[Rfam]
Nucleotides: 242
Stems, first nucleotide, its partner, number of pairs: 003107004056066002083094001086091001209233007
Number, partner (000 for none) and nucleotide at each position: 001000g002000a003107c004106g005105a006104c007000c008000a009000a010000c011000g012000u013000c014000g015000u016000u017000g018000a019000a020000g021000u022000u023000c024000a025000g026000a027000g028000u029000g030000a031000g032000g033000u034000g035000a036000u037000g038000a039000c040000u041000a042000u043000g044000u045000u046000u047000a048000u049000g050000g051000a052000u053000g054000a055000a056066g057065u058000c059000g060000u061000a062000u063000u064000u065057g066056c067000u068000g069000g070000g071000u072000u073000g074000g075000c076000a077000a078000u079000u080000g081000u082000u083094g084000g085000u086091u087000u088000a089000a090000c091086g092000u093000g094083u095000c096000u097000a098000u099000u100000u101000u102000u103000u104006g105005u106004u107003g108000g109000c110000u111000u112000u113000u114000a115000c116000a117000u118000g119000g120000c121000c122000a123000u124000c125000a126000a127000g128000a129000a130000a131000g132000a133000u134000a135000u136000u137000u138000c139000g140000a141000a142000g143000c144000a145000u146000g147000g148000u149000a150000c151000c152000g153000g154000c155000g156000a157000g158000u159000a160000a161000u162000c163000g164000u165000c166000u167000g168000u169000a170000a171000c172000u173000a174000a175000a176000g177000c178000u179000a180000a181000g182000a183000g184000c185000a186000g187000u188000a189000u190000c191000u192000u193000u194000a195000a196000a197000g198000a199000u200000c201000u202000u203000a204000u205000a206000u207000u208000u209233g210232g211231g212230c213229c214228a215227g216000u217000c218000g219000u220000u221000c222000u223000g224000a225000c226000g227215u228214u229213g230212g231211c232210c233209c234000u235000u236000u237000u238000u239000c240000a241000u242000u